The family of this 365-nucleotide RNA from Pseudobacteriovorax antillogorgiicola is "Bacterial RNase P class A". The base pairs follow the family's consensus structure, which is taken from published work. Rfam describes the family as follows. Ribonuclease P (RNase P) is a ubiquitous endoribonuclease, found in archaea, bacteria and eukarya as well as chloroplasts and mitochondria. Its best characterised activity is the generation of mature 5'-ends of tRNAs by cleaving the 5'-leader elements of precursor-tRNAs. Cellular RNase Ps are ribonucleoproteins.
[Rfam]
RNA sequence: UAUGCUGGUUGGACUAUCGCAGUACGCUGAGGAAAGUCCGGACUUCAUAGGGUAGGAUGCUGGCUAACGGCCAGGCGGGGAAACCCGACGGCAAGUGCAACAGAAAGUAAACCGCCUCUCUCGGGAGGUAAGGCUGAAACGGUGAGGUAAGAGCUCACCAGCAGUUCUGGUAACAGACUGGCUAGGUAAACCCCAUCCGAAGCAAGGCCAAGCAAAGGGUGCAACCUUAGAGUUGCAGUGUUGACCCGACAUGCCCUUGGGUAGGUCGCAAGGAGGCAGUUGGCAACAGCUGUCCAAGAUUAAUGAUAGUCUCGGCGAGUUUCGGCUCGCUACGACAGAAUCCGGCUCAUAGACCGGCUAAAGGC
Numbered sequence: 001u002a003u004g005c006u007g008g009u010u011g012g013a014c015u016a017u018c019g020c021a022g023u024a025c026g027c028u029g030a031g032g033a034a035a036g037u038c039c040g041g042a043c044u045u046c047a048u049a050g051g052g053u054a055g056g057a058u059g060c061u062g063g064c065u066a067a068c069g070g071c072c073a074g075g076c077g078g079g080g081a082a083a084c085c086c087g088a089c090g091g092c093a094a095g096u097g098c099a100a101c102a103g104a105a106a107g108u109a110a111a112c113c114g115c116c117u118c119u120c121u122c123g124g125g126a127g128g129u130a131a132g133g134c135u136g137a138a139a140c141g142g143u144g145a146g147g148u149a150a151g152a153g154c155u156c157a158c159c160a161g162c163a164g165u166u167c168u169g170g171u172a173a174c175a176g177a178c179u180g181g182c183u184a185g186g187u188a189a190a191c192c193c194c195a196u197c198c199g200a201a202g203c204a205a206g207g208c209c210a211a212g213c214a215a216a217g218g219g220u221g222c223a224a225c226c227u228u229a230g231a232g233u234u235g236c237a238g239u240g241u242u243g244a245c246c247c248g249a250c251a252u253g254c255c256c257u258u259g260g261g262u263a264g265g266u267c268g269c270a271a272g273g274a275g276g277c278a279g280u281u282g283g284c285a286a287c288a289g290c291u292g293u294c295c296a297a298g299a300u301u302a303a304u305g306a307u308a309g310u311c312u313c314g315g316c317g318a319g320u321u322u323c324g325g326c327u328c329g330c331u332a333c334g335a336c337a338g339a340a341u342c343c344g345g346c347u348c349a350u351a352g353a354c355c356g357g358c359u360a361a362a363g364g365c
Base pairs, nucleotide, nucleotide: 001361004358005357006356007355008354009353010352011350012311013310014309015308016307017306018305020029021028022027035347036346038345039344040343041342042341043202044201045200046199050247051246052245053244055198056197057196058195059194060074061073062072063071064070075089076087077086078085079084090193091192095191096190097187098186112133113132114129115128116127117126118125119124141159142158143157144156145155146154161182162180163179164178166177167176168175169174206267207266208265209264215258216257217256218255219254220253238252239251240250241249242248275294276293277292278291279290280289281288282287
The source organism's lineage runs through Bacteria, Pseudomonadati, Bdellovibrionota, Oligoflexales and Pseudobacteriovorax.